Shown here is a 161-nucleotide RNA from Streptomyces albus, a member of the family "c-di-AMP riboswitch aptamer (ydaO/yuaA leader)". The pairing is the family consensus, mapped onto this sequence.
Nucleotides: 161
Stems, first nucleotide, its partner, number of pairs: 001025002027142006037068001069127003077102003105121004
Number, partner (000 for none) and nucleotide at each position: 001025c002024c003000c004000u005000c006000g007000g008000g009000g010000c011000c012000g013000c014000c015000c016000g017000c018000a019000c020000c021000g022000u023000g024002g025001g026000a027142a028141c029140c030139g031138g032137g033000g034000a035000a036000c037068c038000a039000c040000c041000c042000c043000u044000u045000c046000u047000c048000g049000u050000c051000g052000u053000a054000a055000a056000g057000g058000c059000g060000g061000g062000a063000a064000g065000g066000a067000c068037g069127g070126g071125g072000u073000g074000a075000a076000u077102c078101g079100g080000a081000c082000g083000c084000u085000c086000u087000c088000g089000a090000c091000c092000g093000g094000g095000g096000g097000c098000g099000c100079c101078c102077g103000u104000a105121g106120g107119a108118g109000a110000c111000c112000u113000u114000c115000c116000u117000g118108c119107u120106c121105c122000g123000a124000a125071c126070c127069c128000g129000u130000c131000a132000g133000c134000u135000a136000a137032c138031c139030c140029g141028g142027u143000a144000g145000g146000c147000g148000a149000g150000a151000a152000g153000g154000a155000a156000g157000g158000a159000a160000a161000g
Its family is annotated with regulation of gene expression and cyclic-di-AMP binding in the Gene Ontology.